[Rfam]
A member of the RNA family "Bacterial RNase P class A" from Thermogutta terrifontis, 399 nucleotides long. It is annotated as a ribozyme. The family's consensus secondary structure is taken from published work. Ribonuclease P (RNase P) is a ubiquitous endoribonuclease, found in archaea, bacteria and eukarya as well as chloroplasts and mitochondria. Its best characterised activity is the generation of mature 5'-ends of tRNAs by cleaving the 5'-leader elements of precursor-tRNAs. Cellular RNase Ps are ribonucleoproteins. RNA from bacterial RNase Ps retains its catalytic activity in the absence of the protein subunit, i.e. it is a ribozyme. Isolated eukaryotic and archaeal RNase P RNA has not been shown to retain its catalytic function, but is still essential for the catalytic activity of the holoenzyme. Although the archaeal and eukaryotic holoenzyme s have a much greater protein content than the bacterial ones, the RNA cores from all the three lineages are homologous -- helices corresponding to P1, P2, P3, P4, and P10/11 are common to all cellular RNase P RNAs. Yet, there is considerable sequence variation, particularly among the eukaryotic RNAs. Identified in Yersinia as Ysr151/RnpB.
Nucleotides: 399
Stems, first nucleotide, its partner, number of pairs: 001395002004392007011384001012347007020044002023041006049382003053379005058227004071223005076090005091105001092103004106218002111216002113212003128157002130153003134149005165183006185207001186205008231304004241295005311330008
Number, partner (000 for none) and nucleotide at each position: 001395g002394g003000a004392g005391c006390g007389g008388g009387c010386u011384g012347g013346a014345u015344g016343g017342c018341c019000g020044c021043c022000g023041g024040c025039c026038c027037g028036g029000u030000g031000u032000u033000u034000c035000g036028c037027c038026g039025g040024g041023c042000g043021g044020g045000a046000g047000g048000a049382a050381a051380g052000u053379c054378c055377g056376g057375g058227c059226u060225c061224c062000c063000c064000g065000g066000g067000a068000u069000c070000g071223c072222g073221g074220u075219g076090g077089u078088g079087g080086g081000u082000a083000a084000c085000a086080c087079c088078c089077a090076c091105c092103g093102g094101c095100c096000g097000a098000a099000a100095g101094g102093c103092u104000a105091g106218g107217g108000a109000a110000a111216g112215u113212g114211c115210c116000a117000c118000a119000g120000a121000a122000a123000c124000u125000a126000g127000a128157c129156c130153g131152c132151c133000u134149c135148g136147c137146g138145g139000u140000c141000c142000c143000c144000a145138c146137c147136g148135c149134g150000c151132g152131g153130u154000a155000a156129g157128g158000g159000u160000g161000a162000a163000a164000g165183g166182g167181u168180g169179a170178g171000g172000u173000a174000a175000g176000a177000g178170c179169u180168c181167a182166c183165c184000a185207g186205c187204a188203g189202g190201c191200c192199g193198g194000g195000u196000g197000a198193c199192c200191g201190g202189u203188c204187u205186g206000g207185c208000u209000a210115g211114g212113c213000a214000a215112a216111c217107c218106c219075c220074a221073c222072c223071g224061g225060g226059a227058g228000c229000a230000a231304g232303g233302u234301c235000a236000a237000g238000c239000a240000g241295g242294g243293g244292g245291g246000a247000g248000u249000g250000a251000g252000g253000c254000g255000c256000a257000a258000g259000c260000c261000u262000c263000c264000g265000c266000g267000g268000g269000u270000g271000a272000u273000c274000c275000c276000g277000a278000c279000c280000g281000c282000c283000a284000g285000c286000u287000u288000c289000a290000a291245c292244c293243c294242c295241c296000g297000g298000g299000u300000a301234g302233a303232c304231c305000g306000c307000u308000g309000g310000a311330g312329g313328g314327g315326c316325c317324g318323a319000g320000c321000a322000a323318u324317c325316g326315g327314c328313c329312u330311c331000c332000u333000a334000g335000a336000u337000a338000a339000a340000u341018g342017g343016c344015c345014a346013u347012c348000g349000c350000c351000c352000u353000g354000g355000a356000u357000a358000a359000u360000c361000a362000c363000c364000a365000g366000g367000g368000u369000a370000c371000a372000g373000a374000a375057c376056c377055c378054g379053g380051c381050u382049u383000a384011c385000a386010g387009g388008c389007c390006c391005g392004c393000c394002c395001u396000c397000g398000u399000g